[Rfam]
RNA sequence: CGCAGCUCUGGAGUGUGACAAUGGUGUUUGUGUUGUAUGUAAUCAAACGCCAUUCUCACACUAAACACCUACGG
Dot-bracket structure: ...........(((((((.(((((((((((.............))))))))))).)))))))............
RNA: mir-122 microRNA precursor family